[Rfam]
RNA sequence: AAGAGCAUUGAGUUAAUAGAAACUGAGGAGAUUGACUCAGGAAGA
Number, nucleotide and partner (000 for none) at each position: 001a000002a000003g000004a000005g000006c000007a000008u040009u000010g038011a037012g036013u035014u034015a033016a032017u031018a000019g000020a000021a000022a000023c000024u000025g000026a000027g000028g000029a000030g000031a017032u016033u015034g014035a013036c012037u011038c010039a000040g008041g000042a000043a000044g000045a000
Background:
Plastid-rpl16 group II-D1 intron: a 45-nucleotide sequence from Amborella trichopoda. Rfam's curators write: Plastid-rpl16 is a non-coding RNA (ncRNA) recognised in plastids. The family's consensus secondary structure was predicted with LocARNA.